Shown here is a 129-nucleotide RNA sequence from Merluccius polli, a member of the family "Small nucleolar RNA SNORA63". A reference for the family is Mishra and Eliceiri (1997), "Three small nucleolar RNAs that are involved in ribosomal RNA precursor processing", Proc Natl Acad Sci U S A. By type it is an H/ACA-box small nucleolar RNA.
[Rfam]
RNA sequence: UGGCAGGAUAAGUUACAGUACAGCUUGUGAAGUGCUGUGCUGUCGUUCCCCCUGCAUAAAACAAACUGUUGCCUUCUAUCCCUGCUUGUCUACGUCUCCGGAUAGGCAGGGACGCUUGGUUUCAGACAA
Numbered sequence: 001u002g003g004c005a006g007g008a009u010a011a012g013u014u015a016c017a018g019u020a021c022a023g024c025u026u027g028u029g030a031a032g033u034g035c036u037g038u039g040c041u042g043u044c045g046u047u048c049c050c051c052c053u054g055c056a057u058a059a060a061a062c063a064a065a066c067u068g069u070u071g072c073c074u075u076c077u078a079u080c081c082c083u084g085c086u087u088g089u090c091u092a093c094g095u096c097u098c099c100g101g102a103u104a105g106g107c108a109g110g111g112a113c114g115c116u117u118g119g120u121u122u123c124a125g126a127c128a129a
Stems, first nucleotide, its partner, number of pairs: 003055005015043010081110004086105004